[Rfam]
FMN riboswitch aptamer (RFN element): a 143-nucleotide sequence from Streptohalobacillus salinus. Rfam links the family to the GO term FMN binding. A search with the family's covariance model found it, with a score of 115 bits.
RNA sequence: UUUAAUCUUCGGGGCAGGGUGAGAUUCCCGACCGACGGUAACUAACAGUAAUGUUAGAAGUCCGUGACCCGUGUAUGGUAUACGCGGUGGACCUGGUGUGAAUCCGGGACCGACAGUUAAAGUCUGGAUGGGAGAAGAUCAGA
Numbered sequence: 001u002u003u004a005a006u007c008u009u010c011g012g013g014g015c016a017g018g019g020u021g022a023g024a025u026u027c028c029c030g031a032c033c034g035a036c037g038g039u040a041a042c043u044a045a046c047a048g049u050a051a052u053g054u055u056a057g058a059a060g061u062c063c064g065u066g067a068c069c070c071g072u073g074u075a076u077g078g079u080a081u082a083c084g085c086g087g088u089g090g091a092c093c094u095g096g097u098g099u100g101a102a103u104c105c106g107g108g109a110c111c112g113a114c115a116g117u118u119a120a121a122g123u124c125u126g127g128a129u130g131g132g133a134g135a136a137g138a139u140c141a142g143a
Stems, first nucleotide, its partner, number of pairs: 003141001005139006017029003031123002033112002035065004060110002069087002092108005114126003